Annotation: A member of the RNA family "MIR2912 microRNA precursor family" from Populus deltoides, 161 nucleotides long. Taxonomically the source falls in Populus (Eukaryota, Spermatophyta, Magnoliopsida, eudicotyledons). Rfam 15.1 lists 15,051 matches to the family in 15 species.
RNA sequence: UCUAGAACUCCAGAUAUGGGUAUAAUUCUAAGCAGUGUUUGGGCUCGAUUACAGGACAGAUUCUAACUUCUCUUUUGUGGCCAAACUUUGAAUUUGAAAACGAUAGAUUUGGGUCUUACACUAUUCAUGAACAUUGUAGGUCUAUUUCUUAGCUUUCCAUC
Numbered sequence: 001u002c003u004a005g006a007a008c009u010c011c012a013g014a015u016a017u018g019g020g021u022a023u024a025a026u027u028c029u030a031a032g033c034a035g036u037g038u039u040u041g042g043g044c045u046c047g048a049u050u051a052c053a054g055g056a057c058a059g060a061u062u063c064u065a066a067c068u069u070c071u072c073u074u075u076u077g078u079g080g081c082c083a084a085a086c087u088u089u090g091a092a093u094u095u096g097a098a099a100a101c102g103a104u105a106g107a108u109u110u111g112g113g114u115c116u117u118a119c120a121c122u123a124u125u126c127a128u129g130a131a132c133a134u135u136g137u138a139g140g141u142c143u144a145u146u147u148c149u150u151a152g153c154u155u156u157c158c159a160u161c
Stems, first nucleotide, its partner, number of pairs: 003159001005157003008152002012149003016145005021138005027133001035128003041124001043122001050120001053117005059110002062107004068102001073097002077093002